[Rfam]
RNA sequence: CUCCUCGAAAUAGCUUUAGGGCUAGCGUUGUAAUUUAACCCGCAGGGGUAGAGCACUGGUUGAUCUAGGGGGAGCGACCCUCUUUCCGACGUCAGUCAAACUCCGAAUACUGCGGCGAAUAUUACAGCAGUCAGUUCGUGAGGGAUAAGCUUCACGAGCAAAAGGGAAACAACCCGGACCGUCAAUUUAGGUCCCAAAAUAUAUACUAAGUGGUAAAGGAUGUGGAUUUACUUAAACAGCUAGGAGGUUGGCUUAGAAGCAGCCAUCCUUUGAAGAGUGCGUAAUAGCUCACUAGUCGAGUGAAUCUGCGCCGAAGAUGACUCGGGGCUAAGUAUAUUACCGAAAUUACGGGUUGCAAAAGUCUUCGGACUUUUGUAGCGGUAGAGGAGCGUUAUUAACAGCAGUGAAGGCAUACCGUAAGGAGUGCUGGAGCGUUAAUAAGUGAGAAU
Numbered sequence: 001c002u003c004c005u006c007g008a009a010a011u012a013g014c015u016u017u018a019g020g021g022c023u024a025g026c027g028u029u030g031u032a033a034u035u036u037a038a039c040c041c042g043c044a045g046g047g048g049u050a051g052a053g054c055a056c057u058g059g060u061u062g063a064u065c066u067a068g069g070g071g072g073a074g075c076g077a078c079c080c081u082c083u084u085u086c087c088g089a090c091g092u093c094a095g096u097c098a099a100a101c102u103c104c105g106a107a108u109a110c111u112g113c114g115g116c117g118a119a120u121a122u123u124a125c126a127g128c129a130g131u132c133a134g135u136u137c138g139u140g141a142g143g144g145a146u147a148a149g150c151u152u153c154a155c156g157a158g159c160a161a162a163a164g165g166g167a168a169a170c171a172a173c174c175c176g177g178a179c180c181g182u183c184a185a186u187u188u189a190g191g192u193c194c195c196a197a198a199a200u201a202u203a204u205a206c207u208a209a210g211u212g213g214u215a216a217a218g219g220a221u222g223u224g225g226a227u228u229u230a231c232u233u234a235a236a237c238a239g240c241u242a243g244g245a246g247g248u249u250g251g252c253u254u255a256g257a258a259g260c261a262g263c264c265a266u267c268c269u270u271u272g273a274a275g276a277g278u279g280c281g282u283a284a285u286a287g288c289u290c291a292c293u294a295g296u297c298g299a300g301u302g303a304a305u306c307u308g309c310g311c312c313g314a315a316g317a318u319g320a321c322u323c324g325g326g327g328c329u330a331a332g333u334a335u336a337u338u339a340c341c342g343a344a345a346u347u348a349c350g351g352g353u354u355g356c357a358a359a360a361g362u363c364u365u366c367g368g369a370c371u372u373u374u375g376u377a378g379c380g381g382u383a384g385a386g387g388a389g390c391g392u393u394a395u396u397a398a399c400a401g402c403a404g405u406g407a408a409g410g411c412a413u414a415c416c417g418u419a420a421g422g423a424g425u426g427c428u429g430g431a432g433c434g435u436u437a438a439u440a441a442g443u444g445a446g447a448a449u
Stems, first nucleotide, its partner, number of pairs: 001389006011024005026130001027128007036121001040115006051104001052102002057098003061094004068087002070084005134159010164175003179351004184347003190341003199338001201337006218312002222309010239296005245269003250264003270274001275290001279288002352379011390444001392441007401433002409428005415422002
Dot-bracket structure: ((((((....(((((....))))).((((((((..(...((((((.....(((...(((.((((...(((((((.....))))).))...)))).)))..)).).....)))))).....)))))))).)...((((((((((......))))))))))....(((......)))...((((.(((...(((......(.((((((...........((..((((((((((.......(((((.(((..(((.........)))..)))(...)(...((......)).).)))))...)))))))))).))...................))))))))))...)))))))(((((((((((......)))))))))))....))))))(.(((((((..((......(((((.((....)).)))))...)).)))))))..).....
The record is a 449-nucleotide part of an RNA from Elusimicrobium minutum, which matches "Bacterial large subunit ribosomal RNA" in Rfam. The sequence is in the family's curated seed alignment. The organism belongs to Elusimicrobium minutum, within Bacteria. On this family, see Cannone et al., BMC Bioinformatics 2002: "The comparative RNA web (CRW) site: an online database of comparative sequence and structure information for ribosomal, intron, and other RNAs".